[Rfam]
Rfam assigns this 158-nucleotide sequence from Clostridium sp. CAG:389 to the family "glmS glucosamine-6-phosphate activated ribozyme aptamer". This entry contains a glucosamine-6-phosphate activated ribozyme that is found in the mRNA for GlmS. GlmS is an enzyme that uses fructose-6-phosphate and glutamine to generate glucosamine-6-phosphate. The family's consensus secondary structure is taken from published work. It is annotated as a riboswitch.
RNA sequence: UUUAAAAUUCAAGCGCCAGGACCACUAAUCAAAGUGGUUGACGAGGUCUAGGGUUAUCGAAAAAUUCGGCGGAUGCUCUAGUGGCUUUUACUUAAAGUCAUAAAUAUUAAUAAAAAACUAAUAGUAAUAUUAGAACAGAAAUUAAUAUAUUAAGUUUG
Dot-bracket structure: ...................(((((((......)))))))........(((((....((((.....)))).......)))))((((((.......))))))...(((((((.......((((((....))))))........)))))))..........